[Rfam]
RNA: c-di-AMP riboswitch aptamer (ydaO/yuaA leader)
RNA sequence: UCGUUUCAAUCGCUGAGUUUUCUUUUUUAGAAAAGCGGGGGAACCAAAUUUUGUGGGGUGAAUCGAUGCGUCGGUCCGAUGCGUCGUAGGGCGAUUUCUCACCGUCCGAAUCCGUCAGCUAACCUCGUAGGCGAAUGUGGGGAGGAUAG
Numbered sequence: 001u002c003g004u005u006u007c008a009a010u011c012g013c014u015g016a017g018u019u020u021u022c023u024u025u026u027u028u029a030g031a032a033a034a035g036c037g038g039g040g041g042a043a044c045c046a047a048a049u050u051u052u053g054u055g056g057g058g059u060g061a062a063u064c065g066a067u068g069c070g071u072c073g074g075u076c077c078g079a080u081g082c083g084u085c086g087u088a089g090g091g092c093g094a095u096u097u098c099u100c101a102c103c104g105u106c107c108g109a110a111u112c113c114g115u116c117a118g119c120u121a122a123c124c125u126c127g128u129a130g131g132c133g134a135a136u137g138u139g140g141g142g143a144g145g146a147u148a149g
Base pairs, nucleotide, nucleotide: 011133012132013131014130018034019033020032021031022030023029035128036127037126038125039124040123045055046054056113057112058111064086065085066084067083068082069081070080071079072078073077089107090106091105092104